[Rfam]
RNA sequence: CUACAAACCCGAGCUAUCGUGCCACACCCUGGUGUGGUAAGGAAAGUCCGGACAGCACAGGGCAAUCUACCGGUUAAGAGCCGGGUUCCGGGUAACCGGAAACAGCAAGUGCCACAGAAAAUAACCGCCUGUAACAGGGUAAGGGUGAAAAUGUGAGGUAAGAGCUCACACCGGGCUAUGGUAACAUAGCCCGGGGGUAAACCUUAGGUGCUGUAAUGCCAUGUAUAGGUUCGUUCGAGGGCGGCCCGUCCGAAGAACCAGGGUAGGCAGCAACAGCUGAACAGUAAUGUUCUUCGCAGAUAAAUGAUAGUUUAGAAACAGAAUCCGGCUUAUGAGGUUUGUAGUUAU
Numbered sequence: 001c002u003a004c005a006a007a008c009c010c011g012a013g014c015u016a017u018c019g020u021g022c023c024a025c026a027c028c029c030u031g032g033u034g035u036g037g038u039a040a041g042g043a044a045a046g047u048c049c050g051g052a053c054a055g056c057a058c059a060g061g062g063c064a065a066u067c068u069a070c071c072g073g074u075u076a077a078g079a080g081c082c083g084g085g086u087u088c089c090g091g092g093u094a095a096c097c098g099g100a101a102a103c104a105g106c107a108a109g110u111g112c113c114a115c116a117g118a119a120a121a122u123a124a125c126c127g128c129c130u131g132u133a134a135c136a137g138g139g140u141a142a143g144g145g146u147g148a149a150a151a152u153g154u155g156a157g158g159u160a161a162g163a164g165c166u167c168a169c170a171c172c173g174g175g176c177u178a179u180g181g182u183a184a185c186a187u188a189g190c191c192c193g194g195g196g197g198u199a200a201a202c203c204u205u206a207g208g209u210g211c212u213g214u215a216a217u218g219c220c221a222u223g224u225a226u227a228g229g230u231u232c233g234u235u236c237g238a239g240g241g242c243g244g245c246c247c248g249u250c251c252g253a254a255g256a257a258c259c260a261g262g263g264u265a266g267g268c269a270g271c272a273a274c275a276g277c278u279g280a281a282c283a284g285u286a287a288u289g290u291u292c293u294u295c296g297c298a299g300a301u302a303a304a305u306g307a308u309a310g311u312u313u314a315g316a317a318a319c320a321g322a323a324u325c326c327g328g329c330u331u332a333u334g335a336g337g338u339u340u341g342u343a344g345u346u347a348u
Base pairs, nucleotide, nucleotide: 001344002343003342004341005340006339007338008337009336011333012312013311014310015309016308017307018306020039021038022037023036024035025034026033027032044331045330046329048328049327050326051325052324053213054212055211056210060247061246062245063244065209066208067207068206069205070084071083072082073081074080085103086101087100088099089098090097091096104204105203109202110201111198112197113196125144126143127140128139129138130137152170153169154168155167156166157165172194173192174191175190176189177188178187179186180185217269218268219267220266228259229258230257231256232255239251240250241249242248276295279292280291281290282289283288
The family of this 348-nucleotide sequence from Filimonas zeae is "Bacterial RNase P class A". The match comes from Rfam's covariance-model search (250 bits). Ribonuclease P (RNase P) is a ubiquitous endoribonuclease, found in archaea, bacteria and eukarya as well as chloroplasts and mitochondria. The source organism's lineage runs through Bacteria, Bacteroidota, Chitinophagales, Chitinophagaceae and Filimonas.